[Rfam]
RNA: Molybdenum/Tungsten riboswitch aptamer (Moco RNA motif)
Organism: Maledivibacter halophilus
RNA sequence: AAAAGUAAAUAUCUCCGAGUCUAUAUUCCUAAAGAUAUAUCUAUGGAAUUAAGACCGUUAGGGUGUAAUUAGAAAUAAUUAUGCCUUCCAUUGUGAAAAGGAGAAAUAUUUAGAUAUAU
Numbered sequence: 001a002a003a004a005g006u007a008a009a010u011a012u013c014u015c016c017g018a019g020u021c022u023a024u025a026u027u028c029c030u031a032a033a034g035a036u037a038u039a040u041c042u043a044u045g046g047a048a049u050u051a052a053g054a055c056c057g058u059u060a061g062g063g064u065g066u067a068a069u070u071a072g073a074a075a076u077a078a079u080u081a082u083g084c085c086u087u088c089c090a091u092u093g094u095g096a097a098a099a100g101g102a103g104a105a106a107u108a109u110u111u112a113g114a115u116a117u118a119u
Stems, first nucleotide, its partner, number of pairs: 012104005019055004025049005033042003061086011087096002